[Rfam]
RNA sequence: CAUGCUUCUUCUACAUGCCCAUACUAUAUCGUAAAUGGAUAUGGAAUGUAAAGAAGUAUGUA
Numbered sequence: 001c002a003u004g005c006u007u008c009u010u011c012u013a014c015a016u017g018c019c020c021a022u023a024c025u026a027u028a029u030c031g032u033a034a035a036u037g038g039a040u041a042u043g044g045a046a047u048g049u050a051a052a053g054a055a056g057u058a059u060g061u062a
Stems, first nucleotide, its partner, number of pairs: 001060010012050005019044005

A member of the RNA family "mir-1 microRNA precursor family" from Caenorhabditis brenneri, 62 nucleotides long. Its family is annotated with RISC complex and miRNA-mediated post-transcriptional gene silencing in the Gene Ontology. About the family: This family represents the microRNA (miRNA) mir-1 family. miRNAs are transcribed as ~70nt precursors (modelled here) and subsequently processed by the Dicer enzyme to give a ~22nt product. In this case the mature sequence comes from the 3' arm of the precursor. The extents of the hairpin precursors are not generally known and are estimated based on hairpin prediction. The products are thought to have regulatory roles through complementarity to mRNA. The involvement of Dicer in miRNA processing suggests a relationship with the phenomenon of RNA interference. miRNAs are numbered based on the sequence of the mature RNA. This family also contains the mir-206 from human, which appears to be related to mir-1. Rfam's curators put it in the seed alignment. NCBI's taxonomy places the organism under Eukaryota, Ecdysozoa, Rhabditoidea, Peloderinae, Caenorhabditis.